[Rfam]
RNA sequence: GUGGCUGCUGGAUGGGUGCUCUCUACUAGUGCUGUGCAAAGGCUUUUGCUGAGGUUGCUGUGUGCCUGUAGGGUUUCCCUCUAGGCUACAGAGCUGG
Number, nucleotide and partner (000 for none) at each position: 001g000002u096003g095004g094005c093006u092007g086008c085009u084010g082011g081012a000013u000014g080015g079016g078017u000018g076019c000020u000021c073022u072023c071024u070025a069026c068027u000028a067029g066030u000031g065032c064033u000034g000035u000036g061037c060038a059039a000040a000041g056042g055043c054044u053045u052046u051047u000048g000049c000050u000051g046052a045053g044054g043055u042056u041057g000058c000059u038060g037061u036062g000063u000064g032065c031066c029067u028068g026069u025070a024071g023072g022073g021074u000075u000076u018077c000078c016079c015080u014081c011082u010083a000084g009085g008086c007087u000088a000089c000090a000091g000092a006093g005094c004095u003096g002097g000
RNA: mir-9058 microRNA precursor family